[Rfam]
RNA sequence: AUGCAAGGUAGAGGUGCGGAUAAUAAUGAGUAAGGGUGAAUAGUUUAUCAUACUUCACCUGGAAAGGUAUUUCCGCCGAAGCAAGAAAGAUUAAAUAAAACCUUCUUGCUGGACUUAUAGUGAAUAACUAUAAGACUGUCAUCAAAUCUGUCCUCGGAUUUAGAUGGAGCGCUGCCUUAAGG
Number, nucleotide and partner (000 for none) at each position: 001a000002u000003g000004c000005a000006a177007g176008g175009u174010a173011g172012a000013g000014g000015u000016g076017c075018g074019g073020a072021u000022a000023a070024u069025a068026a000027u000028g000029a000030g000031u000032a000033a000034g060035g059036g058037u057038g056039a055040a054041u000042a000043g000044u000045u000046u000047a000048u000049c000050a000051u000052a000053c000054u040055u039056c038057a037058c036059c035060u034061g000062g000063a000064a000065a000066g000067g000068u025069a024070u023071u000072u020073c019074c018075g017076c016077c000078g000079a000080a110081g109082c108083a107084a106085g105086a104087a103088a000089g101090a000091u099092u000093a000094a000095a000096u000097a000098a000099a091100a000101c089102c000103u087104u086105c085106u084107u083108g082109c081110u080111g137112g136113a000114c134115u133116u132117a131118u130119a129120g128121u127122g000123a000124a000125u000126a000127a121128c120129u119130a118131u117132a116133a115134g114135a000136c112137u111138g000139u167140c166141a165142u164143c163144a000145a161146a000147u000148c000149u000150g000151u000152c000153c000154u000155c000156g000157g000158a000159u000160u000161u145162a000163g143164a142165u141166g140167g139168a000169g000170c000171g000172c011173u010174g009175c008176c007177u006178u000179a000180a000181g000182g000
The family of this 182-nucleotide sequence from Candidatus Atribacteria bacterium MT.SAG.1 is "Lysine riboswitch aptamer".
Its family is annotated with lysine biosynthetic process in the Gene Ontology.
The organism belongs to Atribacterota, within Bacteria.